[Rfam]
Annotation:
The record is a 79-nucleotide sequence from Poecilia formosa, which matches "mir-17 microRNA precursor family" in Rfam. Lineage of the source: Eukaryota > Bilateria > Actinopterygii > Atherinomorphae > Poecilia. A reference for the family is Ambros (2001), "microRNAs: tiny regulators with great potential", Cell. This family represents the microRNA (miRNA) precursor mir-17, family, which includes mir-20, mir-91, and mir-103. miRNAs are transcribed as ~70nt precursors (modelled here) and subsequently processed by the Dicer enzyme to give a ~22nt product. It scores 68 bits against the family's covariance model. Rfam links the family to the GO terms RISC complex and miRNA-mediated post-transcriptional gene silencing. The base pairs follow the family's consensus structure, which was predicted with RNAalifold.
RNA sequence: UGUGCAUUGUCAAAGUGCUUACAGUGCAGGUAGUAAUAUGUGAUGCCUACUGCAGUGGAGGCACUUACAGCAAUACACA
Numbered sequence: 001u002g003u004g005c006a007u008u009g010u011c012a013a014a015g016u017g018c019u020u021a022c023a024g025u026g027c028a029g030g031u032a033g034u035a036a037u038a039u040g041u042g043a044u045g046c047c048u049a050c051u052g053c054a055g056u057g058g059a060g061g062c063a064c065u066u067a068c069a070g071c072a073a074u075a076c077a078c079a
Stems, first nucleotide, its partner, number of pairs: 004076001006074002009071002013066008022057002025054003029051005